[Rfam]
RNA sequence: AGGUGUUAUAGCUCUUUUAGAAUUUGUUUAGCAGGUUUUCUAGUCCUCACUGGAAGACCCCU
Numbered sequence: 001a002g003g004u005g006u007u008a009u010a011g012c013u014c015u016u017u018u019a020g021a022a023u024u025u026g027u028u029u030a031g032c033a034g035g036u037u038u039u040c041u042a043g044u045c046c047u048c049a050c051u052g053g054a055a056g057a058c059c060c061c062u
Base pairs, nucleotide, nucleotide: 034059035058036057037056038055039054040053041052042051043050044049
RNA: U7 small nuclear RNA
Organism: Otolemur garnettii